About this RNA: Shown here is an 82-nucleotide RNA sequence from Clostridium paraputrificum, a member of the family "Glycine riboswitch aptamer". It scores 58 bits against the family's covariance model. The pairing is the family consensus, mapped onto this sequence. The source organism's lineage runs through Bacteria, Clostridia, Eubacteriales, Clostridiaceae and Clostridium.
Nucleotides: 082
Stems, first nucleotide, its partner, number of pairs: 006077008020036004038062003041058002045056003
Number, partner (000 for none) and nucleotide at each position: 001000a002000u003000g004000a005000a006077g007076a008075u009074a010073g011072u012071g013070g014000g015000a016000g017000a018000g019000c020036g021035a022034c023033a024000a025000a026000c027000u028000u029000a030000u031000u032000u033023u034022g035021u036020c037000c038062a039061c040060c041058g042057a043000a044000g045056a046055g047054g048000g049000a050000a051000a052000a053000u054047c055046u056045u057042u058041c059000a060040g061039g062038u063000u064000a065000u066000a067000g068000g069000a070013c071012c072011g073010c074009u075008a076007u077006u078000g079000g080000a081000c082000g